The family of this 51-nucleotide RNA sequence from Enhydra lutris is "mir-1302 microRNA precursor family".
NCBI's taxonomy places the organism under Eukaryota, Eumetazoa, Deuterostomia, Boreoeutheria, Enhydra lutris.
It scores 65 bits against the family's covariance model.
The family has 24 seed sequences and 16,160 matches in Rfam 15.1.

RNA sequence: UUAUAAGUAUAAGUAUGUCCCAUGUGAUAUUGGGACAUACUUAUACUAAAG
Numbered sequence: 001u002u003a004u005a006a007g008u009a010u011a012a013g014u015a016u017g018u019c020c021c022a023u024g025u026g027a028u029a030u031u032g033g034g035a036c037a038u039a040c041u042u043a044u045a046c047u048a049a050a051g
Stems, first nucleotide, its partner, number of pairs: 006047007014039003018035005